[Rfam]
RNA sequence: CCAUGCAUCUUUUGCGACAGACAACGUUUAUAUAUUAAACAAAUGUCUUACUAUAGAUGCUAUAGUAAAUAUCUCUAUCCGUAUUGAACCACAAAUCAAUAGAAGGUUUAAUUUAUUUGAGAUGAAAUCU
Dot-bracket structure: ...((((.....))))..(((((..(((((.....)))))...)))))((((((((...))))))))..((((((.......((((((((..............))))))))......))))))......
Numbered sequence: 001c002c003a004u005g006c007a008u009c010u011u012u013u014g015c016g017a018c019a020g021a022c023a024a025c026g027u028u029u030a031u032a033u034a035u036u037a038a039a040c041a042a043a044u045g046u047c048u049u050a051c052u053a054u055a056g057a058u059g060c061u062a063u064a065g066u067a068a069a070u071a072u073c074u075c076u077a078u079c080c081g082u083a084u085u086g087a088a089c090c091a092c093a094a095a096u097c098a099a100u101a102g103a104a105g106g107u108u109u110a111a112u113u114u115a116u117u118u119g120a121g122a123u124g125a126a127a128u129c130u
Stems, first nucleotide, its partner, number of pairs: 004016004019048005026040005049067008070124006083112008

The record is a 130-nucleotide sequence from Tetrahymena thermophila, which matches "Tetrahymena snoRNA TtnuHACA6" in Rfam. NCBI's taxonomy places the organism under Eukaryota, Alveolata, Hymenostomatida, Tetrahymenidae, Tetrahymena. It is one of the family's seed sequences. Rfam links the family to the GO terms nucleolus and RNA processing.